[Rfam]
RNA sequence: AGCAGAGUAGAACGUUGUGCGUAAAUCAUUGAUUUGCAGUGCCUUCUGAACGGGGAGUUGUCAGAGGGACGAAAAGCCUUUUAGGGCUUACGGUACAAGGUUCGCAUCCCGCUGCU
Numbered sequence: 001a002g003c004a005g006a007g008u009a010g011a012a013c014g015u016u017g018u019g020c021g022u023a024a025a026u027c028a029u030u031g032a033u034u035u036g037c038a039g040u041g042c043c044u045u046c047u048g049a050a051c052g053g054g055g056a057g058u059u060g061u062c063a064g065a066g067g068g069a070c071g072a073a074a075a076g077c078c079u080u081u082u083a084g085g086g087c088u089u090a091c092g093g094u095a096c097a098a099g100g101u102u103c104g105c106a107u108c109c110c111g112c113u114g115c116u
Stems, first nucleotide, its partner, number of pairs: 001116005010103004015098005020092003039070002042068008053109003057105001074089004
Rfam assigns this 116-nucleotide sequence from Clostridium kluyveri to the family "THF (Tetrahydrofolate) riboswitch aptamer". On this family, see Huang et al., Proc Natl Acad Sci U S A 2011: "Long-range pseudoknot interactions dictate the regulatory response in the tetrahydrofolate riboswitch". Pairs were carried over by alignment from the consensus structure, which is taken from published work. It is one of the family's seed sequences. Its family is annotated with tetrahydrofolate metabolic process in the Gene Ontology.